The record is a 165-nucleotide sequence from Gorilla gorilla, which matches "U1 spliceosomal RNA" in Rfam. The family's consensus secondary structure is taken from published work. On this family, see Zwieb, Nucleic Acids Res 1997: "The uRNA database". NCBI's taxonomy places the organism under Eukaryota, Metazoa, Sarcopterygii, Theria, Gorilla gorilla. From the family's description: U1 is a small nuclear RNA (snRNA) component of the spliceosome (involved in pre-mRNA splicing). Its 5' end forms complementary base pairs with the 5' splice junction, thus defining the 5' donor site of an intron. There are significant differences in sequence and secondary structure between metazoan and yeast U1 snRNAs, the latter being much longer (568 nucleotides as compared to 164 nucleotides in human). Nevertheless, secondary structure predictions suggest that all U1 snRNAs share a 'common core' consisting of helices I, II, the proximal region of III, and IV. This family does not contain the larger yeast sequences.
[Rfam]
RNA sequence: UUACUUACCUAGCACGGGAGAUACUGUGAUCACAAAGGUGGUUUUCCCAGAGUAAGUCUCACCUAUUGCACUCUGGGUAUACUGGCCCCUGUGAUUUUACCAAAUGCAAGAAACUUGACUGCGUAAUUUGUGGUAGUGGGGGGACUGUGUUUGCGCUUUCCCUGU
Numbered sequence: 001u002u003a004c005u006u007a008c009c010u011a012g013c014a015c016g017g018g019a020g021a022u023a024c025u026g027u028g029a030u031c032a033c034a035a036a037g038g039u040g041g042u043u044u045u046c047c048c049a050g051a052g053u054a055a056g057u058c059u060c061a062c063c064u065a066u067u068g069c070a071c072u073c074u075g076g077g078u079a080u081a082c083u084g085g086c087c088c089c090u091g092u093g094a095u096u097u098u099a100c101c102a103a104a105u106g107c108a109a110g111a112a113a114c115u116u117g118a119c120u121g122c123g124u125a126a127u128u129u130g131u132g133g134u135a136g137u138g139g140g141g142g143g144a145c146u147g148u149g150u151u152u153g154c155g156c157u158u159u160c161c162c163u164g165u
Base pairs, nucleotide, nucleotide: 012122013121014120016048017047018046019045020044021043023042024041025040026039027038049090050089052087056083061078062077063076064075092117093116094115095113096111097110100106139163140162141161142160144159147156148155149154